[Rfam]
RNA sequence: CCCGCGUUGAGGCCCAUGACCAUGAUGGCAGGAACGGGGGAACCAGUUCUGGUCUCGGUGACGAGGCCUUGGGGUGAAGUCCGCGCAGCGGACCGGGCGUCUCCAGCUCGAACCCGACAGCUCACCUCGUCGGCACACAGGAGAAUCAAC
Numbered sequence: 001c002c003c004g005c006g007u008u009g010a011g012g013c014c015c016a017u018g019a020c021c022a023u024g025a026u027g028g029c030a031g032g033a034a035c036g037g038g039g040g041a042a043c044c045a046g047u048u049c050u051g052g053u054c055u056c057g058g059u060g061a062c063g064a065g066g067c068c069u070u071g072g073g074g075u076g077a078a079g080u081c082c083g084c085g086c087a088g089c090g091g092a093c094c095g096g097g098c099g100u101c102u103c104c105a106g107c108u109c110g111a112a113c114c115c116g117a118c119a120g121c122u123c124a125c126c127u128c129g130u131c132g133g134c135a136c137a138c139a140g141g142a143g144a145a146u147c148a149a150c
Base pairs, nucleotide, nucleotide: 001032002031034130035129036128037127038126039125044071045070072115073114074113080092081091082090083089095109096108097107098106
The record is a 150-nucleotide sequence from Actinomyces urogenitalis, which matches "c-di-AMP riboswitch aptamer (ydaO/yuaA leader)" in Rfam. Taxonomically the source falls in Actinomyces urogenitalis (Bacteria, Bacillati, Actinomycetes, Actinomyces).